[Rfam]
RNA sequence: GGCUGGUCCGAUGGUAGUGGGUUAUUAGAACUUAUUAAUGUUAGUGUCCCAAAUGUUGGUGUAUAACCCCCCACUGCUAAAAUCUGACUGGCUAAA
Number, nucleotide and partner (000 for none) at each position: 001g000002g092003c091004u090005g089006g088007u087008c086009c000010g085011a083012u000013g000014g000015u079016a075017g074018u073019g072020g071021g070022u000023u000024a000025u000026u000027a000028g000029a000030a000031c000032u000033u061034a060035u059036u000037a057038a056039u000040g000041u000042u000043a000044g000045u000046g000047u000048c000049c000050c000051a000052a000053a000054u000055g000056u038057u037058g000059g035060u034061g033062u000063a000064u000065a000066a000067c000068c000069c000070c021071c020072c019073a018074c017075u016076g000077c000078u000079a015080a000081a000082a000083u011084c000085u010086g008087a007088c006089u005090g004091g003092c002093u000094a000095a000096a000
A member of the RNA family "Y RNA" from Aotus nancymaae, 96 nucleotides long. A reference for the family is Teunissen et al. (2000), "Conserved features of Y RNAs: a comparison of experimentally derived secondary structures", Nucleic Acids Res.